[Rfam]
Nucleotides: 086
Base pairs, nucleotide, nucleotide: 012037013036017032018031019030020029021028022027040080041079042078043077047076048075049072050071051070056066057065058064059063
Number, partner (000 for none) and nucleotide at each position: 001000c002000a003000a004000c005000g006000a007000u008000a009000a010000a011000g012037g013036c014000a015000a016000a017032u018031u019030u020029a021028g022027u023000g024000a025000a026000a027022a028021c029020u030019a031018g032017a033000g034000a035000c036013g037012c038000a039000a040080a041079g042078c043077u044000a045000a046000a047076g048075g049072g050071c051070c052000u053000u054000c055000c056066u057065u058064a059063g060000u061000u062000a063059u064058u065057a066056a067000g068000a069000u070051g071050g072049c073000a074000g075048c076047c077043a078042g079041u080040u081000a082000c083000c084000g085000a086000a